Small nucleolar RNA SNORA58: a 138-nucleotide sequence from Chrysemys picta. On this family, see Huttenhofer et al., EMBO J 2001: "RNomics: an experimental approach that identifies 201 candidates for novel, small, non-messenger RNAs in mouse". It is annotated as an H/ACA-box small nucleolar RNA. Rfam's curators write: ACA52 is a member of the H/ACA class of snoRNA that guide the sites of modification of uridines to pseudouridines. The source organism's lineage runs through Eukaryota, Teleostomi, Sauria, Archelosauria and Chrysemys picta. Gene Ontology terms of the family: nucleolus and RNA processing. It scores 75 bits against the family's covariance model.
RNA sequence: CUGCAUACCAGUAGACCCUUUCUGGCUGGUCUCAUAGCCAUAAAGGGGGGACAGCGUAUGCAACAGUAAACAGUUAAGUUGCCAGCGGACUCAUUCAGACAAACCUAUGGCUGAUUGGCCUGCGGUACUUAAACAGAA
Numbered sequence: 001c002u003g004c005a006u007a008c009c010a011g012u013a014g015a016c017c018c019u020u021u022c023u024g025g026c027u028g029g030u031c032u033c034a035u036a037g038c039c040a041u042a043a044a045g046g047g048g049g050g051a052c053a054g055c056g057u058a059u060g061c062a063a064c065a066g067u068a069a070a071c072a073g074u075u076a077a078g079u080u081g082c083c084a085g086c087g088g089a090c091u092c093a094u095u096c097a098g099a100c101a102a103a104c105c106u107a108u109g110g111c112u113g114a115u116u117g118g119c120c121u122g123c124g125g126u127a128c129u130u131a132a133a134c135a136g137a138a
Base pairs, nucleotide, nucleotide: 003061004060005059006058007057008056016047017046018045019044020043021042023040024039075131076130077129078128080127083124095114096113097112098111